[Rfam]
FMN riboswitch aptamer (RFN element): a 156-nucleotide RNA sequence from Microbacterium sp. dk485. Rfam's curators write: The RFN element is a highly conserved domain that is found frequently in the 5'-untranslated regions of prokaryotic mRNAs that encode for flavin mononucleotide (FMN) biosynthesis and transport proteins. The organism belongs to Microbacterium, within Bacteria. Gene Ontology term of the family: FMN binding.
RNA sequence: AACGUGCUCCGGGGUCGGUGAGAAUCCGAACCGGCGGUGACAGUCCGCGAGCCCGAGUGUCCGCCUAGCGGGGACGAAGGCCGAUCCGGUGGAAAUCCGGAACCGACGGUGAUGCGACGGUCCUCCGUCGCGAGUCCGGAUGGGAGGCAGCACGGU
Numbered sequence: 001a002a003c004g005u006g007c008u009c010c011g012g013g014g015u016c017g018g019u020g021a022g023a024a025u026c027c028g029a030a031c032c033g034g035c036g037g038u039g040a041c042a043g044u045c046c047g048c049g050a051g052c053c054c055g056a057g058u059g060u061c062c063g064c065c066u067a068g069c070g071g072g073g074a075c076g077a078a079g080g081c082c083g084a085u086c087c088g089g090u091g092g093a094a095a096u097c098c099g100g101a102a103c104c105g106a107c108g109g110u111g112a113u114g115c116g117a118c119g120g121u122c123c124u125c126c127g128u129c130g131c132g133a134g135u136c137c138g139g140a141u142g143g144g145a146g147g148c149a150g151c152a153c154g155g156u
Stems, first nucleotide, its partner, number of pairs: 003154006009147002016028003032105002034048004043103002051081003085101005107138003